Shown here is a 213-nucleotide RNA sequence from Spartinivicinus marinus, a member of the family "RgsA sRNA". The organism belongs to Spartinivicinus, within Bacteria. By type it is a small RNA. This small RNA (sRNA) was computationally identified in the genome of the opportunistic pathogen Pseudomonas aeruginosa and its expression verified by northern blot analysis. The base pairs follow the family's consensus structure, which was predicted with RNAalifold. It scores 107 bits against the family's covariance model. The literature on the family includes a 2018 paper in Microbiology by Lu et al., "RgsA, an RpoS-dependent sRNA, negatively regulates rpoS expression in Pseudomonas aeruginosa".

[Rfam]
RNA sequence: UACUUAGCUCUCUGCUUAUGCUAAAUGAAUUUAAAAAUGCCUCAGUUUUCGCUGGAGGAUUUACCAGCAUCAUCAAUACUUAAAAUUACUGAUUGAGACUUAAUCCCCCUAAAGUCACAAUCAGUCUAGGUCAAUCUGACCUCGGUACGUAGGAUUGUGUACCUUUGUUUCACUCCUAAUGGUCUUAACCCGAAUUCAUCCCCCAGGAUUCGG
Dot-bracket structure: .........................................(((...........................................((((..((.(.(((..........))).).))..))))..((((.............................))))...............))).......((((.(((........))).))))